[Rfam]
RNA: tRNA
RNA sequence: GGCCCCGUAGCUCAGGGGAUAGAGCGUCGGUUUCCUAAACCGUGCGUCGGAGGUUCGAAUCCUCUCGGGGCCG
Number, nucleotide and partner (000 for none) at each position: 001g072002g071003c070004c069005c068006c067007g066008u000009a000010g025011c024012u023013c022014a000015g000016g000017g000018g000019a000020u000021a000022g013023a012024g011025c010026g000027u000028c042029g041030g040031u039032u000033u000034c000035c000036u000037a000038a000039a031040c030041c029042g028043u000044g000045c000046g000047u000048c000049g065050g064051a063052g062053g061054u000055u000056c000057g000058a000059a000060u000061c053062c052063u051064c050065u049066c007067g006068g005069g004070g003071c002072c001073g000